[Rfam]
RNA sequence: GGAUAUGAGGGUAAUCUGGCUGUGAGAGCUGAUAUGCCAUUGAUUGCAGGGGUUGAUCUGACAGAUCUGGCUAGCUUAGGCAGGUGUUCCCUUUCUUCCUCGGCACUGCAUGUGUGUUCCUCCUGAUGUGGCGUGCUUAGGUAAUGAGGAUAGCCUCCCCAACAGUCAUGGUGUUGUUUAUUGGUCAAGGGUGUGGGGUAGCUGUGCUCCCCUCCUGGAAGCUCUAAGUAAGCUCCAGGUCCACGUGUAGGUGAAUGUAGGGUAGUCAAUCAUCCAAUACUGAAUACACAUCCAAAUGAGAAGCUGCAUGCAGCAGUCUGCCAGUGGCU
Number, nucleotide and partner (000 for none) at each position: 001g109002g000003a107004u000005a000006u102007g101008a100009g099010g098011g097012u000013a094014a093015u000016c000017u000018g091019g090020c000021u000022g000023u000024g088025a087026g000027a085028g000029c083030u082031g081032a000033u079034a000035u074036g000037c070038c069039a068040u000041u000042g067043a066044u065045u064046g062047c000048a000049g000050g000051g000052g000053u000054u000055g000056a000057u000058c000059u000060g000061a000062c046063a000064g045065a044066u043067c042068u039069g038070g037071c000072u000073a000074g035075c000076u000077u000078a000079g033080g000081c031082a030083g029084g000085u027086g000087u025088u024089c000090c019091c018092u000093u014094u013095c000096u000097u011098c010099c009100u008101c007102g006103g000104c000105a000106c000107u003108g000109c001110a000111u000112g000113u000114g000115u000116g000117u171118u170119c000120c000121u000122c165123c140124u139125g138126a137127u000128g136129u135130g000131g000132c000133g000134u000135g129136c128137u126138u125139a124140g123141g000142u161143a000144a000145u000146g000147a000148g158149g157150a156151u000152a000153g000154c000155c000156u150157c149158c148159c000160c000161a142162a000163c000164a000165g122166u000167c000168a000169u000170g118171g117172u000173g000174u000175u000176g000177u000178u000179u000180a000181u000182u000183g000184g000185u000186c000187a000188a000189g000190g000191g000192u000193g000194u000195g000196g000197g000198g000199u000200a000201g271202c000203u269204g000205u000206g000207c265208u264209c000210c262211c261212c260213u259214c000215c257216u000217g000218g000219a000220a000221g000222c253223u000224c251225u250226a000227a000228g248229u247230a246231a000232g244233c000234u000235c000236c000237a000238g000239g000240u000241c000242c000243a000244c232245g000246u230247g229248u228249a000250g225251g224252u000253g222254a000255a000256u000257g215258u000259a213260g212261g211262g210263u000264a208265g207266u000267c000268a000269a203270u000271c201272a000273u000274c000275c000276a000277a000278u000279a000280c000281u000282g000283a000284a000285u000286a000287c000288a000289c000290a000291u000292c000293c000294a329295a000296a000297u000298g000299a000300g322301a000302a000303g317304c316305u315306g314307c313308a000309u000310g000311c000312a000313g307314c306315a305316g304317u303318c000319u000320g000321c000322c300323a000324g000325u000326g000327g000328c000329u294
Description
Rfam assigns this 329-nucleotide RNA from Phainopepla nitens to the family "7SK RNA". The source organism's lineage runs through Eukaryota, Metazoa, Bilateria, Telluraves and Phainopepla. Rfam describes the family as follows. 7SK was discovered as an abundant small nuclear RNA in the mid-70s but a possible function has only recently been suggested. It scores 157 bits against the family's covariance model. The literature on the family includes a 1991 paper in Mol Cell Biol by Wassarman and Steitz, "Structural analyses of the 7SK ribonucleoprotein (RNP), the most abundant human small RNP of unknown function".